Source information:
The family of this 72-nucleotide RNA sequence from Scaptodrosophila lebanonensis is "mir-8/mir-141/mir-200 microRNA precursor family".
RNA sequence: GUUCACAUCUUACCGGGCAGCAUUAGAUUUUAGAUUUAAAUAAUUCUAAUACUGUCAGGUAAAGAUGUCGUC
Numbered sequence: 001g002u003u004c005a006c007a008u009c010u011u012a013c014c015g016g017g018c019a020g021c022a023u024u025a026g027a028u029u030u031u032a033g034a035u036u037u038a039a040a041u042a043a044u045u046c047u048a049a050u051a052c053u054g055u056c057a058g059g060u061a062a063a064g065a066u067g068u069c070g071u072c
Stems, first nucleotide, its partner, number of pairs: 003070001005068005010062005016056005022050006

For this family Rfam cites "New microRNAs from mouse and human" (Lagos-Quintana et al., RNA, 2003). The match comes from Rfam's covariance-model search (73 bits).